[Rfam]
RNA sequence: AGAUAACUCAGAGUCCCCCGACGGGGGAUAUGAGUAACGGCUGCUUGGCACAGCCCGGAGUCUACCUGUUCGAUACAACCACGGGUGCGUUCCACCCACAAGAACAGGCAGACUGCAAACCCUAAUAUCCCAACGCUCGGGAUUCACCCCGCCUUCAGGCGGGUGA
Numbered sequence: 001a002g003a004u005a006a007c008u009c010a011g012a013g014u015c016c017c018c019c020g021a022c023g024g025g026g027g028a029u030a031u032g033a034g035u036a037a038c039g040g041c042u043g044c045u046u047g048g049c050a051c052a053g054c055c056c057g058g059a060g061u062c063u064a065c066c067u068g069u070u071c072g073a074u075a076c077a078a079c080c081a082c083g084g085g086u087g088c089g090u091u092c093c094a095c096c097c098a099c100a101a102g103a104a105c106a107g108g109c110a111g112a113c114u115g116c117a118a119a120c121c122c123u124a125a126u127a128u129c130c131c132a133a134c135g136c137u138c139g140g141g142a143u144u145c146a147c148c149c150c151g152c153c154u155u156c157a158g159g160c161g162g163g164u165g166a
Stems, first nucleotide, its partner, number of pairs: 004037001007034004013029007039055005059114005065108007084097002128142004133137001144166004149162005
Dot-bracket structure: ...(..((((..(((((((...))))))).))))..).(((((.......)))))...(((((.(((((((............((..........))....))))))).))))).............((((.(...).)))).((((.(((((....)))))))))
Shown here is a 166-nucleotide sequence from Natronomonas aquatica, a member of the family "Sense overlapping transcript RNA 0042 (sot)". It is annotated as a small RNA. For this family Rfam cites "Sense overlapping transcripts in IS1341-type transposase genes are functional non-coding RNAs in archaea" (Gomes-Filho et al., RNA Biol, 2015). A search with the family's covariance model found it, with a score of 95 bits. It is associated with IS1341-type transposase (tnpB) genes, at the 3'-end in H. salinarum NRC-1. The tetraloop structural motif may be functional. The organism belongs to Natronomonas, within Archaea.